[Rfam]
RNA sequence: CACAGCACGCGGUAGCAGAGGUGCUGCGAUACGCUGUGUAGUAUCAUAUCACAGUUCUUUGCUACCUCGUGCUUCGCA
Numbered sequence: 001c002a003c004a005g006c007a008c009g010c011g012g013u014a015g016c017a018g019a020g021g022u023g024c025u026g027c028g029a030u031a032c033g034c035u036g037u038g039u040a041g042u043a044u045c046a047u048a049u050c051a052c053a054g055u056u057c058u059u060u061g062c063u064a065c066c067u068c069g070u071g072c073u074u075c076g077c078a
Stems, first nucleotide, its partner, number of pairs: 004073005012065010023055004028050004033045001
Dot-bracket structure: ...(((((...((((((((((.((((.((((.(...........).)))).))))))))))))))...))))).....

A member of the RNA family "mir-43_2 microRNA precursor family" from Ascaris suum, 78 nucleotides long. Lineage of the source: Eukaryota > Opisthokonta > Protostomia > Ascaridomorpha > Ascaris. The base pairs follow the family's consensus structure, which was predicted with RNAalifold.